[Rfam]
Overview
Shown here is an 85-nucleotide RNA from Rhodobacterales bacterium HTCC2255, a member of the family "Glycine riboswitch aptamer". The base pairs follow the family's consensus structure. Taxonomically the source falls in Rhodobacterales (Bacteria, Pseudomonadati, Pseudomonadota, Alphaproteobacteria).
RNA sequence: AAAUCGAAUCUGGGAGACACUGACUUUCAGGGCCGAAGGAGCAACCGCCUCGGAAACUCUCAGGCAAAAGGACCGUAUUCGACAA
Numbered sequence: 001a002a003a004u005c006g007a008a009u010c011u012g013g014g015a016g017a018c019a020c021u022g023a024c025u026u027u028c029a030g031g032g033c034c035g036a037a038g039g040a041g042c043a044a045c046c047g048c049c050u051c052g053g054a055a056a057c058u059c060u061c062a063g064g065c066a067a068a069a070g071g072a073c074c075g076u077a078u079u080c081g082a083c084a085a
Base pairs, nucleotide, nucleotide: 006080007079008078009077011075012074013073020030021029022028023027032065033064034063035061036060039059040058041057045052